RNA sequence: GAGCUGUUGUGUUUUAUGGCUUUUUAUUCCUAUGUGAAUGUGAAAGAGGCUCAUGUAGGGAUACAAGCCACUAAACACACUGUGAA
Numbered sequence: 001g002a003g004c005u006g007u008u009g010u011g012u013u014u015u016a017u018g019g020c021u022u023u024u025u026a027u028u029c030c031u032a033u034g035u036g037a038a039u040g041u042g043a044a045a046g047a048g049g050c051u052c053a054u055g056u057a058g059g060g061a062u063a064c065a066a067g068c069c070a071c072u073a074a075a076c077a078c079a080c081u082g083u084g085a086a
Base pairs, nucleotide, nucleotide: 005082006081008079009078010077011076012075013074014073017070018069019068020067021066022065026062027061028060029059030058031057032056033055034054035053036052037051
The family of this 86-nucleotide RNA sequence from Triplophysa tibetana is "mir-135 microRNA precursor family".
For this family Rfam cites "Identification of tissue-specific microRNAs from mouse" (Lagos-Quintana et al., Curr Biol, 2002).